RNA sequence: CUGUCUCUUGCUUCAACAGAGCUUGGAGGGAACAG
Numbered sequence: 001c002u003g004u005c006u007c008u009u010g011c012u013u014c015a016a017c018a019g020a021g022c023u024u025g026g027a028g029g030g031a032a033c034a035g
Base pairs, nucleotide, nucleotide: 001035002034003033004032006031007030008029012027013026014025015024016023017021
The family of this 35-nucleotide RNA from Cervus hanglu is "Iron response element I". By type it is a cis-regulatory element. The literature on the family includes a 1987 paper in Science by Hentze et al., "Identification of the iron-responsive element for the translational regulation of human ferritin mRNA". The match comes from Rfam's covariance-model search (35 bits).